[Rfam]
RNA sequence: CGACUCUGGAAAGCAGCGGACCCCCGUCCGCUCACCGACGGUGCAAGGGACCCGCGUUCGCGGCGACCGAAUCUCUCAGGUUCCCUACAGAGCGGGGAGG
Numbered sequence: 001c002g003a004c005u006c007u008g009g010a011a012a013g014c015a016g017c018g019g020a021c022c023c024c025c026g027u028c029c030g031c032u033c034a035c036c037g038a039c040g041g042u043g044c045a046a047g048g049g050a051c052c053c054g055c056g057u058u059c060g061c062g063g064c065g066a067c068c069g070a071a072u073c074u075c076u077c078a079g080g081u082u083c084c085c086u087a088c089a090g091a092g093c094g095g096g097g098a099g100g
Stems, first nucleotide, its partner, number of pairs: 001095001004092005015032006034081003037077002041075001043073001047068002

The record is a 100-nucleotide RNA sequence from Leucobacter chromiiresistens, which matches "Glycine riboswitch aptamer" in Rfam. Lineage of the source: Bacteria > Actinomycetes > Micrococcales > Microbacteriaceae > Leucobacter.